[Rfam]
RNA: Purine riboswitch aptamer
Organism: Eubacterium ventriosum
RNA sequence: UUUGCUAUUAUAUCAAAGGAUUAUAUAAGUUCAUGAUAUGGAUGAACGUUUCUACUAACUGCCGCAAAUGGUUAUCUAUAAUCUUUAUUAUAGGUGAA
Numbered sequence: 001u002u003u004g005c006u007a008u009u010a011u012a013u014c015a016a017a018g019g020a021u022u023a024u025a026u027a028a029g030u031u032c033a034u035g036a037u038a039u040g041g042a043u044g045a046a047c048g049u050u051u052c053u054a055c056u057a058a059c060u061g062c063c064g065c066a067a068a069u070g071g072u073u074a075u076c077u078a079u080a081a082u083c084u085u086u087a088u089u090a091u092a093g094g095u096g097a098a
Base pairs, nucleotide, nucleotide: 018084019083020082021081022080023079024078025077029047030046031045032044033043034042056074057073058072059071060070061069